RNA sequence: GUGGGCGUCGUCACCGUGACGCCGCAGCCCGUGACCCUGUCGACCGAGCUGACCGGCCGCACCUCGGCCUUCCGCGUGGCGGAGGUGCGCCCGCAGGUCAGCGGCGUCAUCCUGAAGCGGCUGUUCACCGAGGGCGGCGAGGUCAAGGCCGGCCAGCAGCUGUAUCAGAUAGA
Numbered sequence: 001g002u003g004g005g006c007g008u009c010g011u012c013a014c015c016g017u018g019a020c021g022c023c024g025c026a027g028c029c030c031g032u033g034a035c036c037c038u039g040u041c042g043a044c045c046g047a048g049c050u051g052a053c054c055g056g057c058c059g060c061a062c063c064u065c066g067g068c069c070u071u072c073c074g075c076g077u078g079g080c081g082g083a084g085g086u087g088c089g090c091c092c093g094c095a096g097g098u099c100a101g102c103g104g105c106g107u108c109a110u111c112c113u114g115a116a117g118c119g120g121c122u123g124u125u126c127a128c129c130g131a132g133g134g135c136g137g138c139g140a141g142g143u144c145a146a147g148g149c150c151g152g153c154c155a156g157c158a159g160c161u162g163u164a165u166c167a168g169a170u171a172g173a
Stems, first nucleotide, its partner, number of pairs: 003054002006051002008047003011043002015039002018037001022033001023031002055150004059143002063139001065137001067135002072133001075130001079094004097118001102114003106110001157172001160168002

A member of the RNA family "Burkholderia RNA 14" from Nitrospirillum viridazoti, 173 nucleotides long. Rfam links the family to the GO term protein binding. Co-purified with Hfq, expression confirmed by Northern blot. Putative functional homologue of PA-SraF. Overlaps coding sequence. For this family Rfam cites "Experimental identification of small non-coding regulatory RNAs in the opportunistic human pathogen Burkholderia cenocepacia J2315" (Ramos et al., Genomics, 2013). Lineage of the source: Bacteria > Pseudomonadati > Alphaproteobacteria > Azospirillaceae > Nitrospirillum viridazoti.